[Rfam]
RNA sequence: GGGAGGGAAUCGUCCCUGGUGGGGCGGCCGGGCUUCAAACCCGGUGGGUGGCGCCACGCGUCGCCGGGAGGGUUCGACUCCCUCUCCCUUCC
Numbered sequence: 001g002g003g004a005g006g007g008a009a010u011c012g013u014c015c016c017u018g019g020u021g022g023g024g025c026g027g028c029c030g031g032g033c034u035u036c037a038a039a040c041c042c043g044g045u046g047g048g049u050g051g052c053g054c055c056a057c058g059c060g061u062c063g064c065c066g067g068g069a070g071g072g073u074u075c076g077a078c079u080c081c082c083u084c085u086c087c088c089u090u091c092c
Stems, first nucleotide, its partner, number of pairs: 001092008011026006027045006047065005069083004
Selenocysteine transfer RNA: a 92-nucleotide RNA from Variovorax sp. PAMC 28711.
NCBI's taxonomy places the organism under Bacteria, Pseudomonadati, Betaproteobacteria, Burkholderiales, Variovorax.
Pairs were carried over by alignment from the consensus structure, which is taken from published work.